[Rfam]
RNA sequence: UCUUCCAAGGAGCGUUGCGACGAAAACGUUAAGUUUUUGCCAGGCUUGGGAUAUCCAUAACUGCGCUCACGUUAC
Numbered sequence: 001u002c003u004u005c006c007a008a009g010g011a012g013c014g015u016u017g018c019g020a021c022g023a024a025a026a027c028g029u030u031a032a033g034u035u036u037u038u039g040c041c042a043g044g045c046u047u048g049g050g051a052u053a054u055c056c057a058u059a060a061c062u063g064c065g066c067u068c069a070c071g072u073u074a075c
Stems, first nucleotide, its partner, number of pairs: 003051006021039006

The record is a 75-nucleotide RNA sequence from Undibacterium sp. KW1, which matches "SAH (S-adenosyl-L-homocysteine) riboswitch aptamer" in Rfam. Lineage of the source: Bacteria > Pseudomonadati > Betaproteobacteria > Oxalobacteraceae > Undibacterium. The match comes from Rfam's covariance-model search (50 bits).